[Rfam]
Streptomyces sRNA 4677: a 250-nucleotide sequence. Rfam classes the family as a small RNA. Located in the intergenic region between anti-sigma factor SCO4677 gene and a putative regulatory protein gene SCO4676. scr4677 expression requires the SCO4677 activity and scr4677 sRNA itself seem to affect the levels of the SCO4676-associated transcripts.

RNA sequence: UGCUCCGGUGUCGUCGACACCUGAAAGACAAAGAAUCUCGGGGGAAAGCACCCCACCAAACCCCACCCAUCCCGCCCGUGGUCGCGCUCACUCGGGCGGGUGAACAUAUCCGGUUCGGCUGGAUUUCCGGGCCGCCCAGGCCCGACGCUCAGCGCAACGCACCACCGCAACCACAGACAUGAGACGGCCCCCGCCGGGAGUGCAAUCCCAAUGCGAGGGCCUGACCACCAAGGAAGCUGGAACCUUCCCG
Dot-bracket structure: ......((((.....(.(.......................................................).)...........((((((....))))))..............(((((..........................)))))................................(((((.(((.((((......))))...))).)))))....))))..(((((.......)))))..